[Rfam]
RNA sequence: GGGGUUGUUACGGAUUCGACAGGCAUUAUGAGGCUUGUUCUGCAACUCAUCGGCAGAUGUAAAAAUGCCAGUUAAAUAUAACUGCAAAAAAUACAAACACUUACGCAUUAGCAGCUUAAUAACCUGCCUGCGUGACCAGUCGCGAAUUGCUUGUGUUUGCUGAUUGGUCUUAAAAUAGCAAGCUACGUUGGGAUUGAGUCAGGCAGUUCCAAAAGAGAUUUACUGACUCGCUUGGUCUAGGUUUGAGUUAUGUAUCGAGUUCAAGUUAAAGUUAAAGCAAGACAUAACCUAUGGUUGUAGACGAAUAAGUUAGCAGGUGUUUGGACGUGGGUUCGACUCCCACCAGCUCCAUAU
Numbered sequence: 001g002g003g004g005u006u007g008u009u010a011c012g013g014a015u016u017c018g019a020c021a022g023g024c025a026u027u028a029u030g031a032g033g034c035u036u037g038u039u040c041u042g043c044a045a046c047u048c049a050u051c052g053g054c055a056g057a058u059g060u061a062a063a064a065a066u067g068c069c070a071g072u073u074a075a076a077u078a079u080a081a082c083u084g085c086a087a088a089a090a091a092u093a094c095a096a097a098c099a100c101u102u103a104c105g106c107a108u109u110a111g112c113a114g115c116u117u118a119a120u121a122a123c124c125u126g127c128c129u130g131c132g133u134g135a136c137c138a139g140u141c142g143c144g145a146a147u148u149g150c151u152u153g154u155g156u157u158u159g160c161u162g163a164u165u166g167g168u169c170u171u172a173a174a175a176u177a178g179c180a181a182g183c184u185a186c187g188u189u190g191g192g193a194u195u196g197a198g199u200c201a202g203g204c205a206g207u208u209c210c211a212a213a214a215g216a217g218a219u220u221u222a223c224u225g226a227c228u229c230g231c232u233u234g235g236u237c238u239a240g241g242u243u244u245g246a247g248u249u250a251u252g253u254a255u256c257g258a259g260u261u262c263a264a265g266u267u268a269a270a271g272u273u274a275a276a277g278c279a280a281g282a283c284a285u286a287a288c289c290u291a292u293g294g295u296u297g298u299a300g301a302c303g304a305a306u307a308a309g310u311u312a313g314c315a316g317g318u319g320u321u322u323g324g325a326c327g328u329g330g331g332u333u334c335g336a337c338u339c340c341c342a343c344c345a346g347c348u349c350c351a352u353a354u
Stems, first nucleotide, its partner, number of pairs: 001350007020323008032311009043297005048059004052069004108130001111127004134169006142160006149183006188212009198227005230266006237259002240256003247288003252283002327343005
Notes
Shown here is a 354-nucleotide sequence from Streptococcus suis, a member of the family "transfer-messenger RNA". Rfam's curators write: Bacterial tmRNA, also known as 10Sa RNA or SsrA, is named for its dual tRNA and mRNA-like properties. Its role is to liberate the mRNA from a stalled ribosome. To accomplish this part of the tmRNA is used as a reading frame that ends in a translation stop signal. The broken mRNA is replaced in the ribosome by the tmRNA and translation of the tmRNA leads to addition of a proteolysis tag to the incomplete protein enabling recognition by a protease. A reference for the family is Williams and Bartel (1996), "Phylogenetic analysis of tmRNA secondary structure", RNA. Taxonomically the source falls in Streptococcus suis (Bacteria, Bacillati, Bacilli, Streptococcaceae). The base pairs follow the family's consensus structure, which is taken from published work. Rfam classes the family as a non-coding RNA gene.